[Rfam]
RNA sequence: GCAGUGUUAAUCUAGUGGAAGGGGCAUAGAAACAAGGCAGUUAUUGCCAUUUUCGCCUCGGGAAGGUCUGAGAUGAGGUCACGUAACAUUCUAGACGGACGGUAUUCUAAUGAUACGUACGAGAACCAGAAACAGCUUUACGUUCUCCAAACUUGCCGGGGACGCUUUCUUGAAAGCAGAGGCGACUGGAAACGAAAAGGUGGAAACUCGUAUGACCGGCGUUUUUAGUACAAUCCACAAGCCUGGUAAUUCAUACCUGGAACUCAAUUCAGACUAAUCUGAUACUGC
Numbered sequence: 001g002c003a004g005u006g007u008u009a010a011u012c013u014a015g016u017g018g019a020a021g022g023g024g025c026a027u028a029g030a031a032a033c034a035a036g037g038c039a040g041u042u043a044u045u046g047c048c049a050u051u052u053u054c055g056c057c058u059c060g061g062g063a064a065g066g067u068c069u070g071a072g073a074u075g076a077g078g079u080c081a082c083g084u085a086a087c088a089u090u091c092u093a094g095a096c097g098g099a100c101g102g103u104a105u106u107c108u109a110a111u112g113a114u115a116c117g118u119a120c121g122a123g124a125a126c127c128a129g130a131a132a133c134a135g136c137u138u139u140a141c142g143u144u145c146u147c148c149a150a151a152c153u154u155g156c157c158g159g160g161g162a163c164g165c166u167u168u169c170u171u172g173a174a175a176g177c178a179g180a181g182g183c184g185a186c187u188g189g190a191a192a193c194g195a196a197a198a199g200g201u202g203g204a205a206a207c208u209c210g211u212a213u214g215a216c217c218g219g220c221g222u223u224u225u226u227a228g229u230a231c232a233a234u235c236c237a238c239a240a241g242c243c244u245g246g247u248a249a250u251u252c253a254u255a256c257c258u259g260g261a262a263c264u265c266a267a268u269u270c271a272g273a274c275u276a277a278u279c280u281g282a283u284a285c286u287g288c
Base pairs, nucleotide, nucleotide: 001288002287003286004285007282008281009280012241013240015238016237017236018235021059022058023057024056025055036048037047038046039045068272069271070270071269072268077217078216079215080214087101089099090098091097102116103115104114105113106112117213118212119211120210121209122208123207136199137198138197242260243259245257246256247255248254
RNA: Nuclear RNase P